RNA: Mammalian CPEB3 ribozyme
Nucleotides: 074
Stems, first nucleotide, its partner, number of pairs: 014047004019042001022074004027069002029041003051063003
Number, partner (000 for none) and nucleotide at each position: 001000u002000c003000a004000g005000c006000a007000u008000c009000u010000c011000a012000u013000a014047g015046g016045g017044g018000a019042c020000a021000u022074a023073g024072c025071a026000a027069a028068a029041g030040u031039g032000u033000u034000c035000a036000c037000a038000c039031c040030a041029u042019g043000a044017c045016c046015c047014c048000u049000g050000u051063c052062a053061g054000g055000c056000a057000a058000u059000u060000g061053u062052u063051g064000u065000g066000a067000a068028u069027u070000c071025u072024g073023c074022u